[Rfam]
RNA sequence: UUGGGGCAAAAUAGUGACUAGCCUGCUUGGGGAAAAAGAGACCAACAUUUGAGGUAAAAUAAAAUUUGCUUCUUUUUACCCAAAAACUUUUUACCGUGGGUGAAAAGAUUCUUCUUGGGUAUAAAAAGAACUAGAUUUAAAUUUACCCCAAGUUGAUUAUGUCUUUUUCCACAAGAUGGUUGGUCACUAGUUUGCCCCCA
Numbered sequence: 001u002u003g004g005g006g007c008a009a010a011a012u013a014g015u016g017a018c019u020a021g022c023c024u025g026c027u028u029g030g031g032g033a034a035a036a037a038g039a040g041a042c043c044a045a046c047a048u049u050u051g052a053g054g055u056a057a058a059a060u061a062a063a064a065u066u067u068g069c070u071u072c073u074u075u076u077u078a079c080c081c082a083a084a085a086a087c088u089u090u091u092u093a094c095c096g097u098g099g100g101u102g103a104a105a106a107g108a109u110u111c112u113u114c115u116u117g118g119g120u121a122u123a124a125a126a127a128g129a130a131c132u133a134g135a136u137u138u139a140a141a142u143u144u145a146c147c148c149c150a151a152g153u154u155g156a157u158u159a160u161g162u163c164u165u166u167u168u169c170c171a172c173a174a175g176a177u178g179g180u181u182g183g184u185c186a187c188u189a190g191u192u193u194g195c196c197c198c199c200a
Stems, first nucleotide, its partner, number of pairs: 003198008012189012026175004031170005041160001044157001045153001049151003053147001055145004060140001062138007070130007077121007087107009
Dot-bracket structure: ..((((((((.((((((((((((..((((.(((((.....(..((...(((.(.((((.(.(((((((.((((((((((((((...(((((((((...))))))))).......)))))))..))))))).))))))).).)))).).))).)...)..).....))))).))))..)))))))))))).))))))))..

A member of the RNA family "MIR2670 microRNA precursor family" from Medicago truncatula, 200 nucleotides long.
Rfam 15.1 lists 188 matches to the family in 2 species.
The match comes from Rfam's covariance-model search (148 bits).